[Rfam]
RNA sequence: ACGAUGUUCCGCUGUAAUAUCAGAUAUUUUUUACAUGAGCAUCUG
Numbered sequence: 001a002c003g004a005u006g007u008u009c010c011g012c013u014g015u016a017a018u019a020u021c022a023g024a025u026a027u028u029u030u031u032u033a034c035a036u037g038a039g040c041a042u043c044u045g
Stems, first nucleotide, its partner, number of pairs: 003043007013035005